[Rfam]
RNA sequence: UUGCAUGUGGACAUACCUCUCCUCAUUCUCUUUGGAGCAGGAGUACAUCCAGAACAUGCUAUAUUAACAGGAGUUCUCAGGGCUGCCAACCUUACAGUAGAGGUUGAGUGGUAGUAUAUUUCUCCUACACAA
Numbered sequence: 001u002u003g004c005a006u007g008u009g010g011a012c013a014u015a016c017c018u019c020u021c022c023u024c025a026u027u028c029u030c031u032u033u034g035g036a037g038c039a040g041g042a043g044u045a046c047a048u049c050c051a052g053a054a055c056a057u058g059c060u061a062u063a064u065u066a067a068c069a070g071g072a073g074u075u076c077u078c079a080g081g082g083c084u085g086c087c088a089a090c091c092u093u094a095c096a097g098u099a100g101a102g103g104u105u106g107a108g109u110g111g112u113a114g115u116a117u118a119u120u121u122c123u124c125c126u127a128c129a130c131a132a
Base pairs, nucleotide, nucleotide: 003059004058005057006056007055008054016041017040018039019037020036021035022034070125071124072123073122082112083111086108087106088105089104090103091102092101093100
Notes:
A member of the RNA family "Small nucleolar RNA U109" from Mesocricetus auratus, 132 nucleotides long. The match comes from Rfam's covariance-model search (136 bits). On this family, see Gu et al., Nucleic Acids Res 2005: "A novel experimental approach for systematic identification of box H/ACA snoRNAs from eukaryotes". Gene Ontology terms of the family: RNA processing and nucleolus. Lineage of the source: Eukaryota > Gnathostomata > Sarcopterygii > Euarchontoglires > Mesocricetus. The family's consensus secondary structure was predicted with WAR.